[Rfam]
RNA sequence: CCGGGACAAAGUUCUGUUAUGCACUGACUCUCAUAGAUUCACAGUCAGAGUGUAUCACAGAACUUAGUCCAGGA
Dot-bracket structure: ...((((.((((((((.....((((((((.............))))..)))).....)))))))).))))....